[Rfam]
The record is a 77-nucleotide sequence from Drosophila rhopaloa, which matches "mir-310 microRNA precursor family" in Rfam. The family is grouped with related families in Rfam's "mir-92 microRNA precursor clan".

Nucleotides: 077
Stems, first nucleotide, its partner, number of pairs: 001077003005073003010068002013065002016062002020058002023055001026053006
Number, partner (000 for none) and nucleotide at each position: 001077a002076c003075a004000a005073u006072u007071c008000u009000u010068g011067g012000c013065u014064g015000u016062g017061g018000a019000u020058u021057g022000g023055g024000c025000a026053a027052a028051u029050a030049c031048u032000a033000u034000g035000u036000a037000u038000u039000u040000u041000a042000u043000c044000c045000a046000a047000a048031g049030g050029u051028a052027u053026u054000g055023c056000a057021c058020a059000u060000u061017c062016c063000c064014c065013a066000g067011c068010c069000u070000g071007g072006a073005a074000a075003u076002g077001u